[Rfam]
RNA sequence: CUGUGCCUGGCUCCCUGUAUGCCACACGUAUAGACCAAUCCAUGGGGCGAUUGGCUACUGUGGGUGGCGUGCGAGGAGCCAAGCAUAC
Numbered sequence: 001c002u003g004u005g006c007c008u009g010g011c012u013c014c015c016u017g018u019a020u021g022c023c024a025c026a027c028g029u030a031u032a033g034a035c036c037a038a039u040c041c042a043u044g045g046g047g048c049g050a051u052u053g054g055c056u057a058c059u060g061u062g063g064g065u066g067g068c069g070u071g072c073g074a075g076g077a078g079c080c081a082a083g084c085a086u087a088c
Stems, first nucleotide, its partner, number of pairs: 002087005008081007016073009027062003
Description:
mir-160 microRNA precursor family: an 88-nucleotide sequence from Colocasia esculenta. Taxonomically the source falls in Colocasia (Eukaryota, Tracheophyta, Euphyllophyta, Araceae). The match comes from Rfam's covariance-model search (83 bits). The base pairs follow the family's consensus structure, which was predicted with PFOLD. Its family is annotated with RISC complex and miRNA-mediated post-transcriptional gene silencing in the Gene Ontology. The family has 7 seed sequences and 1,502 matches in Rfam 15.1.